[Rfam]
RNA sequence: GUUUUUAAUUGCCAAACUUGUUGUGAAGCAGGGACGGAAAGCCAUGGGUCUCAAUGUUUGAGAUCGCCAGGUUGCAAAC
Numbered sequence: 001g002u003u004u005u006u007a008a009u010u011g012c013c014a015a016a017c018u019u020g021u022u023g024u025g026a027a028g029c030a031g032g033g034a035c036g037g038a039a040a041g042c043c044a045u046g047g048g049u050c051u052c053a054a055u056g057u058u059u060g061a062g063a064u065c066g067c068c069a070g071g072u073u074g075c076a077a078a079c
Stems, first nucleotide, its partner, number of pairs: 012037002017032006040073004045069003048064007
c-di-GMP-I riboswitch aptamer: a 79-nucleotide RNA from Hydrogenovibrio crunogenus. The base pairs follow the family's consensus structure, which is taken from published work. For this family Rfam cites "Identification of 22 candidate structured RNAs in bacteria using the CMfinder comparative genomics pipeline" (Weinberg et al., Nucleic Acids Res, 2007). NCBI's taxonomy places the organism under Bacteria, Pseudomonadota, Gammaproteobacteria, Thiotrichales, Hydrogenovibrio.